[Rfam]
Shown here is a 96-nucleotide RNA from Desulforamulus ferrireducens, a member of the family "Guanidine-I riboswitch aptamer".
On this family, see Barrick et al., Proc Natl Acad Sci U S A 2004: "New RNA motifs suggest an expanded scope for riboswitches in bacterial genetic control".
The source organism's lineage runs through Bacteria, Bacillati, Eubacteriales, Peptococcaceae and Desulforamulus.
The pairing is the family consensus, mapped onto this sequence.
A search with the family's covariance model found it, with a score of 88 bits.
RNA sequence: AAUUAUGUUUUCUAGGGUUCCGCAGUUUUUGCUGGCCUGGACCGAGAGAAAACCACAGGUUAUCCUGUGACACGGAGGGAUAAAAGCCCGGGAGAU
Numbered sequence: 001a002a003u004u005a006u007g008u009u010u011u012c013u014a015g016g017g018u019u020c021c022g023c024a025g026u027u028u029u030u031g032c033u034g035g036c037c038u039g040g041a042c043c044g045a046g047a048g049a050a051a052a053c054c055a056c057a058g059g060u061u062a063u064c065c066u067g068u069g070a071c072a073c074g075g076a077g078g079g080a081u082a083a084a085a086g087c088c089c090g091g092g093a094g095a096u
Stems, first nucleotide, its partner, number of pairs: 007053006015043002020040002022037001023034004054069006071091001073094001077089003